[Rfam]
RNA sequence: AGGGCUAUACUUUCAGGGAUCAUUUCUAUAGUUAUUUACUUGGAAAUGUGUUUCGUGAGUGUUUGUUCUCCCAAACCACGAUGAUGAGCUGAGAUGUUUCUUUAGAGCAUGAAUCUGGCACCUAGAUGUGAUUCGAUUCACAUGCUUUGUGCAGUUGAUGAAUGUUCUUUAUUGCUUUUGGCGAUAAUGAGGAAAGACGCAUGAUCUUAGUGGU
Numbered sequence: 001a002g003g004g005c006u007a008u009a010c011u012u013u014c015a016g017g018g019a020u021c022a023u024u025u026c027u028a029u030a031g032u033u034a035u036u037u038a039c040u041u042g043g044a045a046a047u048g049u050g051u052u053u054c055g056u057g058a059g060u061g062u063u064u065g066u067u068c069u070c071c072c073a074a075a076c077c078a079c080g081a082u083g084a085u086g087a088g089c090u091g092a093g094a095u096g097u098u099u100c101u102u103u104a105g106a107g108c109a110u111g112a113a114u115c116u117g118g119c120a121c122c123u124a125g126a127u128g129u130g131a132u133u134c135g136a137u138u139c140a141c142a143u144g145c146u147u148u149g150u151g152c153a154g155u156u157g158a159u160g161a162a163u164g165u166u167c168u169u170u171a172u173u174g175c176u177u178u179u180g181g182c183g184a185u186a187a188u189g190a191g192g193a194a195a196g197a198c199g200c201a202u203g204a205u206c207u208u209a210g211u212g213g214u
Stems, first nucleotide, its partner, number of pairs: 001041003009032003015027004049065002054061001075214005094202004099197005107165003118152003124146002127142005169187007
RNA: Small nucleolar RNA U3
Organism: Triplophysa tibetana